[Rfam]
RNA: Bacterial RNase P class B
RNA sequence: AAGAUAAUCGCUGCAGUAAAAUGUAGAGGAAAGUCCAUGCUCGCACCACCUGAGAUGGUGGUAGUGUUUGUGCUCAGUGAAUCAAUAAGGCUGAGGUAUAGAGGCAUCUAUAACGGCAGACCAAAAUCCUAAGGGAAACUAUGGAUGGAGGCUAUAAAAGUGCCACAGUGACGAAGUUCCUAGGGAAACCUAGGAAGUGGAACGAGGUAAACCCCAUAAGCGAGAAACCCAAAAUUGGUAGGGGAACUCACACUACUGAAAUGAAGGUAACGUGAGACGUUUUUAAAACGUAGAUAAAUGAUUAUCGCAACAGAACAUGGCUUA
Numbered sequence: 001a002a003g004a005u006a007a008u009c010g011c012u013g014c015a016g017u018a019a020a021a022u023g024u025a026g027a028g029g030a031a032a033g034u035c036c037a038u039g040c041u042c043g044c045a046c047c048a049c050c051u052g053a054g055a056u057g058g059u060g061g062u063a064g065u066g067u068u069u070g071u072g073c074u075c076a077g078u079g080a081a082u083c084a085a086u087a088a089g090g091c092u093g094a095g096g097u098a099u100a101g102a103g104g105c106a107u108c109u110a111u112a113a114c115g116g117c118a119g120a121c122c123a124a125a126a127u128c129c130u131a132a133g134g135g136a137a138a139c140u141a142u143g144g145a146u147g148g149a150g151g152c153u154a155u156a157a158a159a160g161u162g163c164c165a166c167a168g169u170g171a172c173g174a175a176g177u178u179c180c181u182a183g184g185g186a187a188a189c190c191u192a193g194g195a196a197g198u199g200g201a202a203c204g205a206g207g208u209a210a211a212c213c214c215c216a217u218a219a220g221c222g223a224g225a226a227a228c229c230c231a232a233a234a235u236u237g238g239u240a241g242g243g244g245a246a247c248u249c250a251c252a253c254u255a256c257u258g259a260a261a262u263g264a265a266g267g268u269a270a271c272g273u274g275a276g277a278c279g280u281u282u283u284u285a286a287a288a289c290g291u292a293g294a295u296a297a298a299u300g301a302u303u304a305u306c307g308c309a310a311c312a313g314a315a316c317a318u319g320g321c322u323u324a
Stems, first nucleotide, its partner, number of pairs: 003306007011026005031323003035320005040224005045062006068219005073095006096114001097112006115214002118153002121150001126146004133140002160212002162208003177196008228243003247276005277291006